[Rfam]
RNA: Guanidine-I riboswitch aptamer
Organism: Amaricoccus sp. HAR-UPW-R2A-40
RNA sequence: UGAGUUGACGGCUAGGGUUCCGGCGUCCCGAGGGAUGCGACUGGUCCGAGAGCUGUCGCCGGCGGGGGAGACAUCCCCGACGGGCGCACGGCGGGACAAAAACCCGGGAGAC
Number, nucleotide and partner (000 for none) at each position: 001u000002g000003a000004g000005u000006u000007g057008a056009c055010g054011g053012c052013u000014a000015g047016g046017g000018u000019u000020c044021c043022g041023g038024c037025g036026u035027c034028c033029c000030g000031a000032g000033g028034g027035a026036u025037g024038c023039g000040a000041c022042u000043g021044g020045u000046c016047c015048g000049a000050g000051a000052g012053c011054u010055g009056u008057c007058g085059c084060c083061g081062g000063c079064g078065g077066g076067g075068g000069a000070g000071a000072c000073a000074u000075c067076c066077c065078c064079g063080a000081c061082g000083g060084g059085c058086g000087c107088a000089c110090g000091g000092c000093g105094g104095g103096a000097c000098a000099a000100a000101a000102a000103c095104c094105c093106g000107g087108g000109a000110g089111a000112c000